A member of the RNA family "CyVA-1 RNA" from Gloeocapsa sp. PCC 73106, 76 nucleotides long. From the family's description: Cyanobacteria, Acidobacteria (1 example), Verrucomicrobia (1 example). The base pairs follow the family's consensus structure, which is taken from published work. The sequence is in the family's curated seed alignment. It is annotated as a small RNA. Taxonomically the source falls in Gloeocapsa (Bacteria, Bacillati, Cyanobacteriota, Cyanophyceae).
RNA sequence: GUAUUGUUUGGAAGUUAUACCGCAGUGGUCCAGUAGCGUACUCCGAAGGAGAGCGAUGUCAGGAGUACAACAAUAC
Numbered sequence: 001g002u003a004u005u006g007u008u009u010g011g012a013a014g015u016u017a018u019a020c021c022g023c024a025g026u027g028g029u030c031c032a033g034u035a036g037c038g039u040a041c042u043c044c045g046a047a048g049g050a051g052a053g054c055g056a057u058g059u060c061a062g063g064a065g066u067a068c069a070a071c072a073a074u075a076c
Stems, first nucleotide, its partner, number of pairs: 001076006009032004038068007